The record is a 341-nucleotide RNA sequence from Xylaria arbuscula, which matches "Nuclear RNase P" in Rfam. Rfam describes the family as follows. Ribonuclease P (RNase P) is a ubiquitous endoribonuclease, found in archaea, bacteria and eukarya as well as chloroplasts and mitochondria. Its best characterised activity is the generation of mature 5'-ends of tRNAs by cleaving the 5'-leader elements of precursor-tRNAs. Cellular RNase Ps are ribonucleoproteins. RNA from bacterial RNase Ps retains its catalytic activity in the absence of the protein subunit, i.e. it is a ribozyme. A reference for the family is Marquez et al. (2005), "Structural implications of novel diversity in eucaryal RNase P RNA", RNA. Taxonomically the source falls in Xylaria (Eukaryota, saccharomyceta, Xylariales, Xylariaceae).

RNA sequence: GACUCUUCGUGCUUUUUCUUCGGAAACGCCACGCAAAAGGUCGUAUUUCCACGCCCGUGAGAAAUUCGGAGUACGCUUCAAUCUCACCUGUGCCCUUGCGUUUUACGCGGGGGAGUUCACAGGUCUGUCCGUGAGGGCCUCGCGUGAUUUUCACGCCUAUGAUUGGCAUCAGAGACGCAGGGGCCUUCCCUUCCCGCUUGGCCCUGCAAGGGGCACGAGCGGGUUGAGGUUGGUUUCCCUAUGGGAGAGUCGUCAUGAAGCUUGUGCGCAUCACUUAAGUGCAAUACACAGCCUCUUUUUUUUUUAUUAGAGAAUUCAAUUCCGAUCACUCUGAUGGGGAC
Numbered sequence: 001g002a003c004u005c006u007u008c009g010u011g012c013u014u015u016u017u018c019u020u021c022g023g024a025a026a027c028g029c030c031a032c033g034c035a036a037a038a039g040g041u042c043g044u045a046u047u048u049c050c051a052c053g054c055c056c057g058u059g060a061g062a063a064a065u066u067c068g069g070a071g072u073a074c075g076c077u078u079c080a081a082u083c084u085c086a087c088c089u090g091u092g093c094c095c096u097u098g099c100g101u102u103u104u105a106c107g108c109g110g111g112g113g114a115g116u117u118c119a120c121a122g123g124u125c126u127g128u129c130c131g132u133g134a135g136g137g138c139c140u141c142g143c144g145u146g147a148u149u150u151u152c153a154c155g156c157c158u159a160u161g162a163u164u165g166g167c168a169u170c171a172g173a174g175a176c177g178c179a180g181g182g183g184c185c186u187u188c189c190c191u192u193c194c195c196g197c198u199u200g201g202c203c204c205u206g207c208a209a210g211g212g213g214c215a216c217g218a219g220c221g222g223g224u225u226g227a228g229g230u231u232g233g234u235u236u237c238c239c240u241a242u243g244g245g246a247g248a249g250u251c252g253u254c255a256u257g258a259a260g261c262u263u264g265u266g267c268g269c270a271u272c273a274c275u276u277a278a279g280u281g282c283a284a285u286a287c288a289c290a291g292c293c294u295c296u297u298u299u300u301u302u303u304u305u306a307u308u309a310g311a312g313a314a315u316u317c318a319a320u321u322c323c324g325a326u327c328a329c330u331c332u333g334a335u336g337g338g339g340a341c
Stems, first nucleotide, its partner, number of pairs: 001341001003339002007334003013291002016288001021057003024046001026044003029040001067324005076260004127138004142156004159256004165251003180240003293312004299306001